RNA sequence: ACAACAGUUGAACCGUCGGUCUACCCAGCAAUAUCAGCCGCUCGGUGGAAGAUCUUCCCUCCGUCAU
Number, nucleotide and partner (000 for none) at each position: 001a000002c000003a000004a064005c063006a000007g000008u000009u000010g058011a000012a056013c000014c000015g053016u052017c051018g000019g000020u049021c048022u047023a046024c045025c044026c000027a042028g041029c040030a000031a000032u000033a000034u000035c000036a000037g000038c000039c000040g029041c028042u027043c000044g025045g024046u023047g022048g021049a020050a000051g017052a016053u015054c000055u000056u012057c000058c010059c000060u000061c000062c000063g005064u004065c000066a000067u000
This 67-nucleotide sequence from Bombyx mori belongs to the Rfam family "mir-2774 microRNA precursor family". Taxonomically the source falls in Bombyx (Eukaryota, Heteroneura, Obtectomera, Bombycidae). The match comes from Rfam's covariance-model search (71 bits). Rfam links the family to the GO terms RISC complex and miRNA-mediated post-transcriptional gene silencing.